[Rfam]
RNA: mir-9256 microRNA precursor family
RNA sequence: ACUUACACUGAGUGACCAGAUUAUUAUGCAUUCUGAGAUCAUAAUAAUCUGGCCACUCAGUGUAAGU
Number, nucleotide and partner (000 for none) at each position: 001a000002c000003u000004u064005a063006c062007a061008c060009u059010g058011a057012g056013u055014g054015a000016c052017c051018a000019g049020a048021u047022u046023a045024u044025u043026a042027u041028g040029c000030a000031u000032u000033c000034u000035g000036a000037g000038a000039u000040c028041a027042u026043a025044a024045u023046a022047a021048u020049c019050u000051g017052g016053c000054c014055a013056c012057u011058c010059a009060g008061u007062g006063u005064a004065a000066g000067u000